[Rfam]
ALIL pseudoknot: a 117-nucleotide sequence from Rhodobacter ferrooxidans. NCBI's taxonomy places the organism under Bacteria, Pseudomonadati, Pseudomonadota, Rhodobacterales, Rhodobacter. It scores 104 bits against the family's covariance model. By type it is a cis-regulatory element. The base pairs follow the family's consensus structure, which is taken from published work.
RNA sequence: GGCGUAUUUUGCCCAGGCGGAGCUCGACCGCCCGUUUCGCAAAUGACUGCUUUCAUUGAAGAACACCGCGGGGAGUUCGGGGUCGAGCCGAUGUGUAGAAUUCUACAGAUCGCUCCU
Numbered sequence: 001g002g003c004g005u006a007u008u009u010u011g012c013c014c015a016g017g018c019g020g021a022g023c024u025c026g027a028c029c030g031c032c033c034g035u036u037u038c039g040c041a042a043a044u045g046a047c048u049g050c051u052u053u054c055a056u057u058g059a060a061g062a063a064c065a066c067c068g069c070g071g072g073g074a075g076u077u078c079g080g081g082g083u084c085g086a087g088c089c090g091a092u093g094u095g096u097a098g099a100a101u102u103c104u105a106c107a108g109a110u111c112g113c114u115c116c117u
Base pairs, nucleotide, nucleotide: 016032017031018030019029020028079116080115081114082113089112090111092109094107095106096105097104098103